[Rfam]
RNA sequence: UCCCCUACAGUUUCCCGACUCUCGUUUUCCGCAAGGAAUGUCUAUCGCAGACCCCUCUUCCAAGGCUUGGUCGGCCGCAAUGUGCCGCGUCCGAGCCUGCUCCAGGACCUCGUUGAAUGCUGCAGCUGGAUCUAUUGCGGCCAGUCUCCGUCUGGCACCCGGAUGGCCAAGUCUAGCAGAGGGAACGAGUCUCGGAACUUAACCCUAAGCAUACAU
Numbered sequence: 001u002c003c004c005c006u007a008c009a010g011u012u013u014c015c016c017g018a019c020u021c022u023c024g025u026u027u028u029c030c031g032c033a034a035g036g037a038a039u040g041u042c043u044a045u046c047g048c049a050g051a052c053c054c055c056u057c058u059u060c061c062a063a064g065g066c067u068u069g070g071u072c073g074g075c076c077g078c079a080a081u082g083u084g085c086c087g088c089g090u091c092c093g094a095g096c097c098u099g100c101u102c103c104a105g106g107a108c109c110u111c112g113u114u115g116a117a118u119g120c121u122g123c124a125g126c127u128g129g130a131u132c133u134a135u136u137g138c139g140g141c142c143a144g145u146c147u148c149c150g151u152c153u154g155g156c157a158c159c160c161g162g163a164u165g166g167c168c169a170a171g172u173c174u175a176g177c178a179g180a181g182g183g184a185a186c187g188a189g190u191c192u193c194g195g196a197a198c199u200u201a202a203c204c205c206u207a208a209g210c211a212u213a214c215a216u
Stems, first nucleotide, its partner, number of pairs: 009199003015195004
Rfam assigns this 216-nucleotide part of an RNA from Trichoderma reesei to the family "Ascomycota telomerase RNA". Rfam links the family to the GO terms telomerase catalytic core complex, telomere maintenance via telomerase and telomerase activity. It is annotated as a non-coding RNA gene. A reference for the family is Qi et al. (2013), "The common ancestral core of vertebrate and fungal telomerase RNAs", Nucleic Acids Res. The family is grouped with related families in Rfam's "Telomerase clan".